[Rfam]
RNA sequence: UUGACCGUGAAGGGCCACCGGUCGUUCGACUCCACCACGGCCUCAUCCCCGAAGUGGUCGCCGUCGGCCAGUGAGUCGAGGAUGACUUGAUCGCCAUACUUGCCCAAGCCCAGCUUGUGGGCCUUGCCAUGGGCGAGCAGGACCACGUGUUCGGCGGGCUGGCCCGCCUCGACGAUGAGCUCACCGGCCUUGAACUCCUUCUGGACGAAGUGGUUGGCCAGGGUUCCCACCACCAGGUUGUCGACGUCCUCGAAGCCGCGCAGCAGCGGCAGCUUGUUCAGCUCCUGGGGAAUGAUCUGCACCUUGGCGCCGAUGUUGCUGAACUGGAGGCGGUCAUCACCCGCCGUAUAGGUCAACCGGCGGUUGACGCGAUACACGCCGGACACCUCGACCCAGGGCAAUAUCCGCAGCAGCCACCGGGGAGUGAUUUCCUCCAUCUGUGGCUGUGACUUGGUCGUCGUCGCCAACUGGCGGGCAGCGGCCGUCGCCAGACUCAACUGCUGUUGCUCCG
Numbered sequence: 001u002u003g004a005c006c007g008u009g010a011a012g013g014g015c016c017a018c019c020g021g022u023c024g025u026u027c028g029a030c031u032c033c034a035c036c037a038c039g040g041c042c043u044c045a046u047c048c049c050c051g052a053a054g055u056g057g058u059c060g061c062c063g064u065c066g067g068c069c070a071g072u073g074a075g076u077c078g079a080g081g082a083u084g085a086c087u088u089g090a091u092c093g094c095c096a097u098a099c100u101u102g103c104c105c106a107a108g109c110c111c112a113g114c115u116u117g118u119g120g121g122c123c124u125u126g127c128c129a130u131g132g133g134c135g136a137g138c139a140g141g142a143c144c145a146c147g148u149g150u151u152c153g154g155c156g157g158g159c160u161g162g163c164c165c166g167c168c169u170c171g172a173c174g175a176u177g178a179g180c181u182c183a184c185c186g187g188c189c190u191u192g193a194a195c196u197c198c199u200u201c202u203g204g205a206c207g208a209a210g211u212g213g214u215u216g217g218c219c220a221g222g223g224u225u226c227c228c229a230c231c232a233c234c235a236g237g238u239u240g241u242c243g244a245c246g247u248c249c250u251c252g253a254a255g256c257c258g259c260g261c262a263g264c265a266g267c268g269g270c271a272g273c274u275u276g277u278u279c280a281g282c283u284c285c286u287g288g289g290g291a292a293u294g295a296u297c298u299g300c301a302c303c304u305u306g307g308c309g310c311c312g313a314u315g316u317u318g319c320u321g322a323a324c325u326g327g328a329g330g331c332g333g334u335c336a337u338c339a340c341c342c343g344c345c346g347u348a349u350a351g352g353u354c355a356a357c358c359g360g361c362g363g364u365u366g367a368c369g370c371g372a373u374a375c376a377c378g379c380c381g382g383a384c385a386c387c388u389c390g391a392c393c394c395a396g397g398g399c400a401a402u403a404u405c406c407g408c409a410g411c412a413g414c415c416a417c418c419g420g421g422g423a424g425u426g427a428u429u430u431c432c433u434c435c436a437u438c439u440g441u442g443g444c445u446g447u448g449a450c451u452u453g454g455u456c457g458u459c460g461u462c463g464c465c466a467a468c469u470g471g472c473g474g475g476c477a478g479c480g481g482c483c484g485u486c487g488c489c490a491g492a493c494u495c496a497a498c499u500g501c502u503g504u505u506g507c508u509c510c511g
Stems, first nucleotide, its partner, number of pairs: 007392002011388002019333001021331002025328004031322002038318004043313002047309001049307004054233002057230002060227001063224002066110003075103001077102004082097003086093001118221001120219001122217002127212001130209001132206001134204001136202002139199003147195001152192002157189006165174002237300002246296003250292001256288003260284001262283003266277003336347002357382006366375001395433004400428001402426003406421001408419001410418001440479002442476001444474004451467005480510002483506002487502001489500003